[Rfam]
RNA sequence: GCGCCGCCCCAGACGGCGGCGUUCGGGGCCUCGCACUGGCCCGGGGCGGGGGUGGUGCCGUGUCGGCGCAGCACCACCCCCGCGGC
Numbered sequence: 001g002c003g004c005c006g007c008c009c010c011a012g013a014c015g016g017c018g019g020c021g022u023u024c025g026g027g028g029c030c031u032c033g034c035a036c037u038g039g040c041c042c043g044g045g046g047c048g049g050g051g052g053u054g055g056u057g058c059c060g061u062g063u064c065g066g067c068g069c070a071g072c073a074c075c076a077c078c079c080c081c082g083c084g085g086c
Stems, first nucleotide, its partner, number of pairs: 001022007023044003028041001029039002046083013060069003
RNA: Streptomyces RNA 6106
Organism: Streptomyces brasiliensis